[Rfam]
RNA sequence: CCAAAUGUUUUCUAGGGUUCCGCGGCAGGUGCCGGACUGGUCCGAGAGAAGACUCACAGCAGUAUUGCUGUGCCACGGAAGGAUAAAAGCCUGGGAGAU
Numbered sequence: 001c002c003a004a005a006u007g008u009u010u011u012c013u014a015g016g017g018u019u020c021c022g023c024g025g026c027a028g029g030u031g032c033c034g035g036a037c038u039g040g041u042c043c044g045a046g047a048g049a050a051g052a053c054u055c056a057c058a059g060c061a062g063u064a065u066u067g068c069u070g071u072g073c074c075a076c077g078g079a080a081g082g083a084u085a086a087a088a089g090c091c092u093g094g095g096a097g098a099u
Stems, first nucleotide, its partner, number of pairs: 007053006015043002020040002022037001023034004055072007074094001076097001080092003
RNA: Guanidine-I riboswitch aptamer
Organism: Peribacillus saganii